[Rfam]
Nucleotides: 075
Stems, first nucleotide, its partner, number of pairs: 001074007010027003029045005051067005
Number, partner (000 for none) and nucleotide at each position: 001074a002073g003072c004071g005070g006069g007068a008000u009000a010027g011026g012025a013000u014000a015000g016000c017000u018000c019000g020000g021000a022000g023000a024000u025012u026011c027010c028000a029045c030044c031043a032042g033041g034000c035000u036000c037000a038000u039000g040000a041033c042032c043031u044030g045029g046000a047000g048000a049000u050000c051067g052066g053065u054064g055063g056000u057000u058000c059000a060000a061000a062000u063055c064054c065053a066052c067051c068007u069006c070005c071004c072003g073002c074001u075000a